[Rfam]
Rfam assigns this 84-nucleotide RNA from Monodelphis domestica to the family "Small nucleolar RNA SNORD60". The match comes from Rfam's covariance-model search (60 bits). Taxonomically the source falls in Monodelphis (Eukaryota, Deuterostomia, Dipnotetrapodomorpha, Metatheria). The family is grouped with related families in Rfam's "SNORD60 clan". On this family, see Galardi et al., Mol Cell Biol 2002: "Purified box C/D snoRNPs are able to reproduce site-specific 2'-O-methylation of target RNA in vitro". Rfam classes the family as a C/D-box small nucleolar RNA.
RNA sequence: AGCCAGUGAUGAAAUCCACAUUUCUGACACCUCGUAUGAGUAUUGCCACUACCAAUACUUGAUUAUGCUUGAGAUCUGAGGCUG
Numbered sequence: 001a002g003c004c005a006g007u008g009a010u011g012a013a014a015u016c017c018a019c020a021u022u023u024c025u026g027a028c029a030c031c032u033c034g035u036a037u038g039a040g041u042a043u044u045g046c047c048a049c050u051a052c053c054a055a056u057a058c059u060u061g062a063u064u065a066u067g068c069u070u071g072a073g074a075u076c077u078g079a080g081g082c083u084g
Base pairs, nucleotide, nucleotide: 001083002082003081004080042056043055044054045053